[Rfam]
RNA sequence: GUGGGCUACGAGGGAAGAUGUGGAUGGGCCUUGAUACUGGGCCCAGGAAAGUCCCCGGGCCAUCUUCUGCAGAAAUGCAGUCUCGGAAACGAGUACUUCGUCGAGUUAUUGGGGAAUUCAGUCGCAUUCGUGCGACGGGCAGAGACGCGUGUGGAGCCUUCCGGAUUUCCCACCGACGAACAUUGGCCGAUUACACAGUUAUUCACAUGGUCCUUUGGGCUAACUGAACGGGGCUUACUCCCUCGUAGCCCA
Dot-bracket structure: .((((((((((......((((((..((((((.......))))))....[[[.[[[[...........((((....))))..((((....))))...(((............((((..........((((.......((((......(....)...))))...)))).))))......)))......................)))))).((((...)))).........]]]]]]]......))))))))))
A member of the RNA family "RNase MRP" from Carya illinoinensis, 252 nucleotides long. Rfam classes the family as a ribozyme. Taxonomically the source falls in Carya (Eukaryota, Viridiplantae, Mesangiospermae, rosids). The match comes from Rfam's covariance-model search (75 bits).